Source information: Shown here is a 71-nucleotide RNA sequence from Crocodylus porosus, a member of the family "Mammalian CPEB3 ribozyme". The source organism's lineage runs through Eukaryota, Eumetazoa, Teleostomi, Archelosauria and Crocodylus. About the family: The mammalian CPEB3 ribozyme is a self cleaving RNA located in the second intron of the CPEB3 gene which belongs to a family of genes regulating messenger RNA polyadenylation.
RNA sequence: AGAAGUCACAAGUUUUGCAGAAGCAUUCAUGAUGUGGCCUGUCAGAUUCCAGCAAAUCUGUAAAUUCUGCU
Dot-bracket structure: .[..[[[..(......(((((((((.......)))]]]]...((((((......))))))....)))))))